[Rfam]
RNA sequence: CCCCUCCAGAUCCCUUUCCCAUCAGAUCUGAAUACCGAUCUUGUGGUCAAAAAAGGAGGAAAAAUAAAAUUCAAACUGGUCUCAGCCUCUUUGCUGCUGUGGUCCUGCUCUGAGAGGA
Number, nucleotide and partner (000 for none) at each position: 001c000002c000003c059004c058005u057006c056007c055008a000009g000010a000011u000012c000013c000014c000015u000016u000017u000018c000019c046020c045021a044022u000023c043024a000025g040026a039027u038028c037029u000030g000031a000032a000033u000034a000035c000036c000037g028038a027039u026040c025041u000042u000043g023044u021045g020046g019047u000048c000049a000050a000051a000052a000053a000054a000055g007056g006057a005058g004059g003060a000061a000062a000063a000064a000065u000066a000067a000068a000069a000070u000071u000072c000073a000074a000075a000076c107077u000078g105079g104080u000081c102082u101083c000084a000085g000086c000087c000088u000089c000090u000091u000092u000093g000094c000095u000096g000097c000098u000099g000100u000101g082102g081103u000104c079105c078106u000107g076108c000109u000110c000111u000112g000113a000114g000115a000116g000117g000118a000